[Rfam]
RNA sequence: AAAAAAGGCUUCUGUUGUGAGUGGCACACAUAGGACAACUUGUUUGUUCUGUGUGUGGAAUCAACAUCAAGAGAUUUUGGAAGUAUAAUCUUUUGGUAACUUGGGCAGCUAGUGAUUGUUGGUCCUGGCGCCCUU
Numbered sequence: 001a002a003a004a005a006a007g008g009c010u011u012c013u014g015u016u017g018u019g020a021g022u023g024g025c026a027c028a029c030a031u032a033g034g035a036c037a038a039c040u041u042g043u044u045u046g047u048u049c050u051g052u053g054u055g056u057g058g059a060a061u062c063a064a065c066a067u068c069a070a071g072a073g074a075u076u077u078u079g080g081a082a083g084u085a086u087a088a089u090c091u092u093u094u095g096g097u098a099a100c101u102u103g104g105g106c107a108g109c110u111a112g113u114g115a116u117u118g119u120u121g122g123u124c125c126u127g128g129c130g131c132c133c134u135u
Stems, first nucleotide, its partner, number of pairs: 008084005013026005027055012056079007103133004108129005114124004
Dot-bracket structure: .......((((((((((....)))))((((((((((((.....))))))))))))(((((((..........))))))))))))..................((((.(((((.((((...)))))))))))))..
The family of this 135-nucleotide sequence from Octodon degus is "U11 spliceosomal RNA".
Rfam classes the family as a spliceosomal small nuclear RNA.
On this family, see Montzka and Steitz, Proc Natl Acad Sci U S A 1988: "Additional low-abundance human small nuclear ribonucleoproteins: U11, U12, etc".
Rfam 15.1 lists 2,595 matches to the family in 1,202 species.
Pairs were carried over by alignment from the consensus structure, which is taken from published work.
Clan: U1 clan.
Lineage of the source: Eukaryota > Opisthokonta > Craniata > Amniota > Octodon.